Annotation: Shown here is a 266-nucleotide sequence from Bacillus sp. J14TS2, a member of the family "BsrG". It scores 104 bits against the family's covariance model. The source organism's lineage runs through Bacteria, Bacillati, Bacillota, Caryophanales and Bacillus. Rfam describes the family as follows. bsrE, bsrG and bsrH pair through intermolecular interactions with antisense sRNAs. The family's RNA type in Rfam is small RNA.
RNA sequence: GACAAUAGCAUAUUGGUUAGCUCAAGGGUGGUCGGCACACUCCCGAAAGGGGGUGAUGCCUUAUGACAAUUGCAGAAUCGUUAAUGCUGAUGGUGAGUUUCGGAGCGUUAAUUGUUGCGAUUAUGUCAGAUAAAAAUACCAAAAAAUAAAAUCCACCCUUGAGUUCACGGCUCGUUUCGGUGGAUUUUAUUCAUCUAACAUUCGUGCUGAUCCCCCUUGCAGGGAACCGAGCUAUUGUGUAGGCUGAAGGUGUUGUAGCACCUUCA
Numbered sequence: 001g002a003c004a005a006u007a008g009c010a011u012a013u014u015g016g017u018u019a020g021c022u023c024a025a026g027g028g029u030g031g032u033c034g035g036c037a038c039a040c041u042c043c044c045g046a047a048a049g050g051g052g053g054u055g056a057u058g059c060c061u062u063a064u065g066a067c068a069a070u071u072g073c074a075g076a077a078u079c080g081u082u083a084a085u086g087c088u089g090a091u092g093g094u095g096a097g098u099u100u101c102g103g104a105g106c107g108u109u110a111a112u113u114g115u116u117g118c119g120a121u122u123a124u125g126u127c128a129g130a131u132a133a134a135a136a137u138a139c140c141a142a143a144a145a146a147u148a149a150a151a152u153c154c155a156c157c158c159u160u161g162a163g164u165u166c167a168c169g170g171c172u173c174g175u176u177u178c179g180g181u182g183g184a185u186u187u188u189a190u191u192c193a194u195c196u197a198a199c200a201u202u203c204g205u206g207c208u209g210a211u212c213c214c215c216c217u218u219g220c221a222g223g224g225a226a227c228c229g230a231g232c233u234a235u236u237g238u239g240u241a242g243g244c245u246g247a248a249g250g251u252g253u254u255g256u257a258g259c260a261c262c263u264u265c266a
Stems, first nucleotide, its partner, number of pairs: 002238004007233003011229001013210005021163008030153003038055007065127004078093003101119002104116001211225004245266009